A member of the RNA family "Bacterial large subunit ribosomal RNA" from Thermobaculum terrenum, 249 nucleotides of a longer RNA.

[Rfam]
RNA sequence: GGAGGUUGUGAGGGGAUCCGUCCCUAGUACGAGAGGACCGGGAUGGACGGACCUACGGUGUACCGGUUGUCAAGAGUUGGCACCGCCGGGUAGCCGAGUCCGGUCGGGAUAACCGCUGAAAGCAUCUAAGCGGGAAGCCCACCCCAGGAUUAGACCUCCCCACUAGACCCCAGGAAGAUGACCUGGUAGAUAGGCCGCAGGUGCAAGCACCGUAAGGUGUGCAGCCAAGCGGUACUAACGGUCGACCGU
Numbered sequence: 001g002g003a004g005g006u007u008g009u010g011a012g013g014g015g016a017u018c019c020g021u022c023c024c025u026a027g028u029a030c031g032a033g034a035g036g037a038c039c040g041g042g043a044u045g046g047a048c049g050g051a052c053c054u055a056c057g058g059u060g061u062a063c064c065g066g067u068u069g070u071c072a073a074g075a076g077u078u079g080g081c082a083c084c085g086c087c088g089g090g091u092a093g094c095c096g097a098g099u100c101c102g103g104u105c106g107g108g109a110u111a112a113c114c115g116c117u118g119a120a121a122g123c124a125u126c127u128a129a130g131c132g133g134g135a136a137g138c139c140c141a142c143c144c145c146a147g148g149a150u151u152a153g154a155c156c157u158c159c160c161c162a163c164u165a166g167a168c169c170c171c172a173g174g175a176a177g178a179u180g181a182c183c184u185g186g187u188a189g190a191u192a193g194g195c196c197g198c199a200g201g202u203g204c205a206a207g208c209a210c211c212g213u214a215a216g217g218u219g220u221g222c223a224g225c226c227a228a229g230c231g232g233u234a235c236u237a238a239c240g241g242u243c244g245a246c247c248g249u
Stems, first nucleotide, its partner, number of pairs: 001159007009152001012145004018046007048102005056096003063089005068082006106140003113133005166243004170186005191237003194233005200226002204221001207220005